[Rfam]
RNA sequence: AGUCGACACGCUUGAUCUUUGUUUUUCCUGUGUAUUGGGCAAGGUGAGCAAAGAUUCAGGUGUGUUGACUU
Dot-bracket structure: .((((((.((((((((((((.(((..(((............))).))).))))).))))))).))))))..
Numbered sequence: 001a002g003u004c005g006a007c008a009c010g011c012u013u014g015a016u017c018u019u020u021g022u023u024u025u026u027c028c029u030g031u032g033u034a035u036u037g038g039g040c041a042a043g044g045u046g047a048g049c050a051a052a053g054a055u056u057c058a059g060g061u062g063u064g065u066u067g068a069c070u071u
Stems, first nucleotide, its partner, number of pairs: 002069006009062007016054005022048003027044003
Shown here is a 71-nucleotide RNA sequence from Oryctes borbonicus, a member of the family "mir-87 microRNA precursor family". The organism belongs to Oryctes, within Eukaryota. Gene Ontology terms of the family: miRNA-mediated post-transcriptional gene silencing and RISC complex. Pairs were carried over by alignment from the consensus structure, which was predicted with RNAalifold. For this family Rfam cites "The small RNA profile during Drosophila melanogaster development" (Aravin et al., Dev Cell, 2003). Rfam 15.1 lists 420 matches to the family in 285 species.